[Rfam]
RNA: THF (Tetrahydrofolate) riboswitch aptamer
Organism: Clostridia bacterium
RNA sequence: GGCAGAGUAGAUGGACGUGCGUUAUACGAAUUUUUAAAUUCGUAUUAAGUGUCAAGUGGACGGGAAGUUGCCAUUUGAACGAAAAACCUUCGGGUUUGCGAUGCGUUUGUUGCAUUCCGCUGCC
Numbered sequence: 001g002g003c004a005g006a007g008u009a010g011a012u013g014g015a016c017g018u019g020c021g022u023u024a025u026a027c028g029a030a031u032u033u034u035u036a037a038a039u040u041c042g043u044a045u046u047a048a049g050u051g052u053c054a055a056g057u058g059g060a061c062g063g064g065a066a067g068u069u070g071c072c073a074u075u076u077g078a079a080c081g082a083a084a085a086a087c088c089u090u091c092g093g094g095u096u097u098g099c100g101a102u103g104c105g106u107u108u109g110u111u112g113c114a115u116u117c118c119g120c121u122g123c124c
Stems, first nucleotide, its partner, number of pairs: 001124005010111010020100003049080002052078008063117003067113001084097004